[Rfam]
RNA: Eukaryotic small subunit ribosomal RNA, nucleotides 619 to 1154
Organism: Oryzias javanicus
RNA sequence: CGGUUAAAAAGCUCGUAGUUGGAUAUGGGUCUCGGUCGGGUGGUGCCGCCUCACGGUGGUCACUGCCUCGAUCGGACAAUUCAUUGGAUCGUUCGGGGUGCUCUUAACCGAGUGUCCUGGGUGGCCGAUACGUUUACUUUGAACAAAUUAGAGUGCUUAAAGCAGGUGCACCGCGCCUGAAUAUCACAGCAUGGAAUGAUGGAAUAGGACCUCGGUCUUAUUAUGUUGGUUUUCUGGACUUGAGGUAAUGGUUAACAGAGACAGACGGGGGCAUUCGUACUGCGACGCUAGAGGUGAAAUUCUUGGACCGUCGCAAGACGAACAACUGCGAAAGCAUUUGCCAAGAAUGUUUUCAUUAAUCAAGAACGAAAGUUAGAGGUUCGAAGGCGAUCAGAUACCGCCCUAGUUCUAACCAUAAACGAUGCCAACCAGCGAUCCGCGGACGUUACUUGAAUGACUCCGCGGGCAGCUUCCGGGAAACCAAAGUGUUUGGGUUCCGGGGGAAGUAUGGUUGCAAAGCUGAAACUUAAAGGAAU
Numbered sequence: 001c002g003g004u005u006a007a008a009a010a011g012c013u014c015g016u017a018g019u020u021g022g023a024u025a026u027g028g029g030u031c032u033c034g035g036u037c038g039g040g041u042g043g044u045g046c047c048g049c050c051u052c053a054c055g056g057u058g059g060u061c062a063c064u065g066c067c068u069c070g071a072u073c074g075g076a077c078a079a080u081u082c083a084u085u086g087g088a089u090c091g092u093u094c095g096g097g098g099u100g101c102u103c104u105u106a107a108c109c110g111a112g113u114g115u116c117c118u119g120g121g122u123g124g125c126c127g128a129u130a131c132g133u134u135u136a137c138u139u140u141g142a143a144c145a146a147a148u149u150a151g152a153g154u155g156c157u158u159a160a161a162g163c164a165g166g167u168g169c170a171c172c173g174c175g176c177c178u179g180a181a182u183a184u185c186a187c188a189g190c191a192u193g194g195a196a197u198g199a200u201g202g203a204a205u206a207g208g209a210c211c212u213c214g215g216u217c218u219u220a221u222u223a224u225g226u227u228g229g230u231u232u233u234c235u236g237g238a239c240u241u242g243a244g245g246u247a248a249u250g251g252u253u254a255a256c257a258g259a260g261a262c263a264g265a266c267g268g269g270g271g272c273a274u275u276c277g278u279a280c281u282g283c284g285a286c287g288c289u290a291g292a293g294g295u296g297a298a299a300u301u302c303u304u305g306g307a308c309c310g311u312c313g314c315a316a317g318a319c320g321a322a323c324a325a326c327u328g329c330g331a332a333a334g335c336a337u338u339u340g341c342c343a344a345g346a347a348u349g350u351u352u353u354c355a356u357u358a359a360u361c362a363a364g365a366a367c368g369a370a371a372g373u374u375a376g377a378g379g380u381u382c383g384a385a386g387g388c389g390a391u392c393a394g395a396u397a398c399c400g401c402c403c404u405a406g407u408u409c410u411a412a413c414c415a416u417a418a419a420c421g422a423u424g425c426c427a428a429c430c431a432g433c434g435a436u437c438c439g440c441g442g443a444c445g446u447u448a449c450u451u452g453a454a455u456g457a458c459u460c461c462g463c464g465g466g467c468a469g470c471u472u473c474c475g476g477g478a479a480a481c482c483a484a485a486g487u488g489u490u491u492g493g494g495u496u497c498c499g500g501g502g503g504a505a506g507u508a509u510g511g512u513u514g515c516a517a518a519g520c521u522g523a524a525a526c527u528u529a530a531a532g533g534a535a536u
Stems, first nucleotide, its partner, number of pairs: 001499003009496001011367001013365002018360003258354004262349002266345001270342004276320002281315007291302003328335002372413006382406001386402004424495003428487002431471003436466008445458003475482002501528003510521004